This 75-nucleotide RNA from Myotis brandtii belongs to the Rfam family "mir-9223 microRNA precursor family".
The organism belongs to Myotis, within Eukaryota.
The match comes from Rfam's covariance-model search (79 bits).
Its family is annotated with RISC complex and miRNA-mediated post-transcriptional gene silencing in the Gene Ontology.
Rfam 15.1 lists 14,641 matches to the family in 28 species.
The family's consensus secondary structure was predicted with RNAalifold.
RNA sequence: GGCGGUUCUUGGGUGACACACCCCAGAAUCAGGCGUCCUCCUCUCUGGUUCUGGGUGUGUCAGCCCAGAACCACA
Number, nucleotide and partner (000 for none) at each position: 001g000002g074003c000004g000005g071006u070007u069008c068009u067010u000011g065012g064013g000014u062015g061016a060017c059018a000019c057020a056021c055022c054023c053024c000025a052026g051027a050028a049029u048030c047031a046032g045033g044034c000035g000036u000037c000038c000039u000040c000041c000042u000043c000044u033045c032046u031047g030048g029049u028050u027051c026052u025053g023054g022055g021056u020057g019058u000059g017060u016061c015062a014063g000064c012065c011066c000067a009068g008069a007070a006071c005072c000073a000074c002075a000